[Rfam]
RNA: TPP riboswitch aptamer (THI element)
RNA sequence: AUUAUGCACUAGGGGUGCCGUUUAGCGGCUGAGAGACAAUGUCGACCCUUUGAACCUGUUGAGUUUGAACUCGCGUAGGGAAGUGGUUAAACAUUGGC
Numbered sequence: 001a002u003u004a005u006g007c008a009c010u011a012g013g014g015g016u017g018c019c020g021u022u023u024a025g026c027g028g029c030u031g032a033g034a035g036a037c038a039a040u041g042u043c044g045a046c047c048c049u050u051u052g053a054a055c056c057u058g059u060u061g062a063g064u065u066u067g068a069a070c071u072c073g074c075g076u077a078g079g080g081a082a083g084u085g086g087u088u089a090a091a092c093a094u095u096g097g098c
Stems, first nucleotide, its partner, number of pairs: 007085004011049004017029005036042002055079004060073004